[Rfam]
RNA: Small Cajal body specific RNA 16
Nucleotides: 170
Base pairs, nucleotide, nucleotide: 003065004064005063006062008060009059010058015053016052017051018050019048020047022045023044024043025039026038027037028036029035077096078095079094080092081091082090083089084088106164107163108162109161110160111159112158113157115155116154121149122148123147125145126144127143128142132139
Number, partner (000 for none) and nucleotide at each position: 001000g002000g003065g004064g005063g006062c007000u008060u009059g010058g011000g012000g013000c014000c015053g016052g017051c018050c019048g020047c021000u022045g023044g024043c025039g026038g027037c028036u029035g030000c031000c032000u033000c034000u035029c036028a037027g038026c039025c040000c041000g042000u043024g044023c045022c046000u047020g048019c049000c050018g051017g052016c053015c054000u055000g056000c057000c058010c059009c060008g061000c062006g063005c064004c065003c066000c067000a068000g069000a070000u071000c072000a073000a074000c075000c076000c077096c078095c079094c080092g081091c082090g083089g084088g085000c086000u087000c088084c089083c090082c091081g092080c093000c094079g095078g096077g097000u098000u099000u100000c101000c102000u103000c104000c105000c106164g107163u108162g109161c110160a111159g112158u113157a114000a115155c116154a117000g118000g119000u120000g121149u122148g123147a124000g125145c126144a127143u128142c129000c130000a131000u132139g133000c134000a135000g136000c137000a138000u139132u140000u141000u142128g143127g144126u145125g146000g147123u148122c149121a150000u151000g152000u153000a154116u155115g156000a157113u158112a159111c160110u161109g162108c163107a164106c165000a166000c167000a168000g169000c170000g